[Rfam]
Rfam assigns this 75-nucleotide RNA sequence from Colocasia esculenta to the family "Small nucleolar RNA R160". For this family Rfam cites "The high diversity of snoRNAs in plants: identification and comparative study of 120 snoRNA genes from Oryza sativa" (Chen et al., Nucleic Acids Res, 2003). Rfam's curators write: snoR160 is a C/D box small nucleolar RNA, which acts as a methylation guide for 25S ribosomal RNA in plants. snoR160 has been alternatively named snoZ270 in rice. It scores 46 bits against the family's covariance model. The pairing is the family consensus, mapped onto this sequence.

RNA sequence: AGUGGAAGGAUGAGUUUAGUGCAACUGAUUUUCUGAUGAAAAUGCGAAAAUUGCCUUCAAAGUUCUCUGACCACU
Numbered sequence: 001a002g003u004g005g006a007a008g009g010a011u012g013a014g015u016u017u018a019g020u021g022c023a024a025c026u027g028a029u030u031u032u033c034u035g036a037u038g039a040a041a042a043u044g045c046g047a048a049a050a051u052u053g054c055c056u057u058c059a060a061a062g063u064u065c066u067c068u069g070a071c072c073a074c075u
Base pairs, nucleotide, nucleotide: 001075002074003073004072005071